tRNA: a 72-nucleotide sequence from Sphingomonas sp. AP4-R1. Rfam classes the family as a transfer RNA. Transfer RNA (tRNA) molecules are approximately 80 nucleotides in length. Their secondary structure includes four short double-helical elements and three loops (D, anti-codon, and T loops). Further hydrogen bonds mediate the characteristic L-shaped molecular structure. tRNAs have two regions of fundamental functional importance: the anti-codon, which is responsible for specific mRNA codon recognition, and the 3' end, to which the tRNAs corresponding amino acid is attached (by aminoacyl-tRNA synthetases). tRNAs cope with the degeneracy of the genetic code in two manners: having more than one tRNA (with a specific anti-codon) for a particular amino acid; and 'wobble' base-pairing, i.e. permitting non-standard base-pairing at the 3rd anti-codon position. The match comes from Rfam's covariance-model search (69 bits). The base pairs follow the family's consensus structure, which is taken from published work.
RNA sequence: GGGCGCAUAGCUCAGCGGUAGAGCACACCCUUCACACGGGUGGGGUCGCAGGUUCAAUCCCUGCUGCGCCCA
Numbered sequence: 001g002g003g004c005g006c007a008u009a010g011c012u013c014a015g016c017g018g019u020a021g022a023g024c025a026c027a028c029c030c031u032u033c034a035c036a037c038g039g040g041u042g043g044g045g046u047c048g049c050a051g052g053u054u055c056a057a058u059c060c061c062u063g064c065u066g067c068g069c070c071c072a
Stems, first nucleotide, its partner, number of pairs: 001071007010024004026042005048064005